RNA sequence: GCGGAGCUGCCCGGUGCGUCAGGUACAUUAUCCCUGGGGCCAAUAAGCAUCCUCCGGGAGCUGGCUCUGGCCGGAUCUUGGUCCGGCUAUCCGGUGCCCACCUGUUUACACAGGCCUUAGGAGGAUAACACGCCAACGGCCAUGGCGGCUCCGCA
Number, nucleotide and partner (000 for none) at each position: 001g000002c153003g152004g151005a150006g149007c148008u147009g146010c145011c144012c000013g141014g140015u139016g000017c138018g137019u136020c000021a000022g000023g000024u000025a000026c000027a000028u000029u000030a000031u125032c124033c123034c120035u000036g118037g117038g116039g115040c114041c113042a000043a000044u000045a000046a000047g000048c000049a000050u000051c000052c000053u000054c000055c000056g099057g098058g097059a000060g095061c094062u093063g092064g091065c000066u000067c000068u000069g088070g087071c086072c085073g084074g083075a082076u000077c000078u000079u000080g000081g000082u075083c074084c073085g072086g071087c070088u069089a000090u000091c064092c063093g062094g061095u060096g000097c058098c057099c056100a000101c000102c000103u000104g000105u000106u000107u000108a000109c000110a000111c000112a000113g041114g040115c039116c038117u037118u036119a000120g034121g000122a000123g033124g032125a031126u000127a000128a000129c000130a000131c000132g000133c000134c000135a000136a019137c018138g017139g015140c014141c013142a000143u000144g011145g010146c009147g008148g007149c006150u005151c004152c003153g002154c000155a000
A member of the RNA family "6S / SsrS RNA" from Teichococcus rhizosphaerae, 155 nucleotides long. On this family, see Elkina et al., RNA Biol 2017: "6S RNA in Rhodobacter sphaeroides: 6S RNA and pRNA transcript levels peak in late exponential phase and gene deletion causes a high salt stress phenotype". The base pairs follow the family's consensus structure, which is taken from published work. E. coli 6S RNA was the first non coding RNA to be sequenced, but its function was unknown until recently.